[Rfam]
RNA sequence: AUACCUUUCUCGGCCUUUUGGCUAAGAUCAAGUGUAGUAUCUCUUCUUAUCAGUUUAAUAUCUGAUACGUGGGCCAUUGGCCCACAUGAUAUUAAAUUAGUUUUUUAUUGGGGAGAGUCCACUACAGUAGCUUGCUAUUGGGCCUAUUGCGCGUAGCCCAAGCGUUGCACUACUGCUUGGGCUGGCCCACCCUAC
Number, nucleotide and partner (000 for none) at each position: 001a000002u000003a000004c000005c000006u000007u000008u027009c026010u025011c000012g023013g022014c021015c020016u000017u000018u000019u000020g015021g014022c013023u012024a000025a010026g009027a008028u000029c000030a000031a000032g000033u000034g000035u000036a000037g000038u000039a000040u000041c000042u000043c000044u000045u000046c000047u000048u067049a066050u065051c064052a063053g062054u000055u000056u000057a000058a000059u000060a000061u000062c053063u052064g051065a050066u049067a048068c000069g085070u084071g083072g082073g081074c080075c079076a000077u000078u000079g075080g074081c073082c072083c071084a070085c069086a000087u000088g000089a000090u000091a000092u000093u000094a000095a000096a000097u000098u000099a000100g000101u000102u000103u000104u000105u000106u000107a000108u000109u000110g000111g000112g000113g148114a147115g000116a145117g144118u000119c142120c141121a000122c000123u000124a000125c000126a000127g138128u137129a136130g135131c000132u000133u000134g000135c130136u129137a128138u127139u000140g000141g120142g119143c000144c117145u116146a000147u114148u113149g000150c000151g188152c000153g186154u185155a000156g183157c000158c180159c179160a178161a177162g176163c175164g000165u000166u000167g000168c000169a000170c000171u000172a000173c000174u000175g163176c162177u161178u160179g159180g158181g000182c000183u156184g000185g154186c153187c000188c151189a000190c000191c000192c000193u000194a000195c000
RNA: U2 spliceosomal RNA
Organism: Senna tora